[Rfam]
Shown here is a 76-nucleotide RNA from Alligator mississippiensis, a member of the family "Mammalian CPEB3 ribozyme". Taxonomically the source falls in Alligator (Eukaryota, Opisthokonta, Vertebrata, Alligatoridae). The mammalian CPEB3 ribozyme is a self cleaving RNA located in the second intron of the CPEB3 gene which belongs to a family of genes regulating messenger RNA polyadenylation.

RNA sequence: AGGCAAAAGUGUGAGGCCAUAGCAGAAAUGCUCAUGGCAUGACCUGUCAGAUUCCAAUGAAUCUGUGAAUUCUGCU
Numbered sequence: 001a002g003g004c005a006a007a008a009g010u011g012u013g014a015g016g017c018c019a020u021a022g023c024a025g026a027a028a029u030g031c032u033c034a035u036g037g038c039a040u041g042a043c044c045u046g047u048c049a050g051a052u053u054c055c056a057a058u059g060a061a062u063c064u065g066u067g068a069a070u071u072c073u074g075c076u
Base pairs, nucleotide, nucleotide: 015044016043018041021076022075023074024073025072026071027070028040029039030038048065049064050063051062052061053060054059
Its family is annotated with RNA nuclease activity in the Gene Ontology.